[Rfam]
RNA sequence: AGAAAAAGCUAGGGGAGCCUUCGGGCUGAGAAAAGUGACGGAUUACACUUGACCCUUUACCUGAUGCGGAUCAUGCCGCCGUAGGGAAGCUUUACGGGAUUAUA
Numbered sequence: 001a002g003a004a005a006a007a008g009c010u011a012g013g014g015g016a017g018c019c020u021u022c023g024g025g026c027u028g029a030g031a032a033a034a035g036u037g038a039c040g041g042a043u044u045a046c047a048c049u050u051g052a053c054c055c056u057u058u059a060c061c062u063g064a065u066g067c068g069g070a071u072c073a074u075g076c077c078g079c080c081g082u083a084g085g086g087a088a089g090c091u092u093u094a095c096g097g098g099a100u101u102a103u104a
Base pairs, nucleotide, nucleotide: 006092007091008090009089010088011056012055013054014053017026018025019024033050034049035048036047037046060085061084062083063082066079067078068077069076
Shown here is a 104-nucleotide sequence from Megasphaera elsdenii, a member of the family "TPP riboswitch aptamer (THI element)". The organism belongs to Megasphaera elsdenii, within Bacteria. From the family's description: Vitamin B(1) in its active form thiamin pyrophosphate (TPP) is an essential coenzyme that is synthesised by coupling of pyrimidine and thiazole moieties in bacteria.